Rfam assigns this 230-nucleotide part of an RNA from Pseudonocardiaceae bacterium YIM PH 21723 to the family "Bacterial large subunit ribosomal RNA".
RNA sequence: GAGUUAGUGGCAUGUCGCGAGGUUAACCCGUGUGGGGAAGCCGUAGCGAAAGCGAGUCUGAAUAGGGCGACGCAGUGGCAUGUUCUAGACCCGAAGCGGUGUGAUCUACCCAUGGCCAGGGUGAAGCGACGGUAAGACGUCGUGGAGGCCCGAACCCACUUAGGUUGAAAACUGAGGGGAUGAGCUGUGGGUAGGGGUGAAAGGCCAAUCAAACACCGUGAUAGCUGGUU
Numbered sequence: 001g002a003g004u005u006a007g008u009g010g011c012a013u014g015u016c017g018c019g020a021g022g023u024u025a026a027c028c029c030g031u032g033u034g035g036g037g038a039a040g041c042c043g044u045a046g047c048g049a050a051a052g053c054g055a056g057u058c059u060g061a062a063u064a065g066g067g068c069g070a071c072g073c074a075g076u077g078g079c080a081u082g083u084u085c086u087a088g089a090c091c092c093g094a095a096g097c098g099g100u101g102u103g104a105u106c107u108a109c110c111c112a113u114g115g116c117c118a119g120g121g122u123g124a125a126g127c128g129a130c131g132g133u134a135a136g137a138c139g140u141c142g143u144g145g146a147g148g149c150c151c152g153a154a155c156c157c158a159c160u161u162a163g164g165u166u167g168a169a170a171a172c173u174g175a176g177g178g179g180a181u182g183a184g185c186u187g188u189g190g191g192u193a194g195g196g197g198u199g200a201a202a203g204g205c206c207a208a209u210c211a212a213a214c215a216c217c218g219u220g221a222u223a224g225c226u227g228g229u230u
Base pairs, nucleotide, nucleotide: 005087006086007085009084010083011082012081013080014079015078016077017076018075021042022041023040024039027036028035029034046053047052056068057067058066059065090228091227093225097218098217099216100215101214102213106194107193108192109191110190111189112188113187114186115185116184117182119151120150121149122148126143127142128141129140130139131138155179156178157177159176160175161174162173163172196206197205198204
The organism belongs to Pseudonocardiaceae, within Bacteria.